[Rfam]
RNA sequence: UAGUGCUACAGCUCGUUUCGAAUUUGUCUAGUAGGUUUUCUGGUCUAUGCUGGAAAGUCCCC
Numbered sequence: 001u002a003g004u005g006c007u008a009c010a011g012c013u014c015g016u017u018u019c020g021a022a023u024u025u026g027u028c029u030a031g032u033a034g035g036u037u038u039u040c041u042g043g044u045c046u047a048u049g050c051u052g053g054a055a056a057g058u059c060c061c062c
Stems, first nucleotide, its partner, number of pairs: 034059011
Shown here is a 62-nucleotide sequence from Carlito syrichta, a member of the family "U7 small nuclear RNA".
Rfam 15.1 lists 10,439 matches to the family in 569 species.
It scores 57 bits against the family's covariance model.
The organism belongs to Carlito, within Eukaryota.
The literature on the family includes a 1994 paper in Nucleic Acids Res by Spycher et al., "3' end processing of mouse histone pre-mRNA: evidence for additional base-pairing between U7 snRNA and pre-mRNA".